[Rfam]
A member of the RNA family "Guanidine-II riboswitch aptamer (mini-ykkC)" from Brucella anthropi, 46 nucleotides long. The base pairs follow the family's consensus structure, which is taken from published work.
RNA sequence: CGGGAAGGACGGCCUUCCCGCUUCUUCAACGAACGGGACGGCCCGU
Numbered sequence: 001c002g003g004g005a006a007g008g009a010c011g012g013c014c015u016u017c018c019c020g021c022u023u024c025u026u027c028a029a030c031g032a033a034c035g036g037g038a039c040g041g042c043c044c045g046u
Base pairs, nucleotide, nucleotide: 001020002019003018004017005016006015007014008013033046034045035044036043037042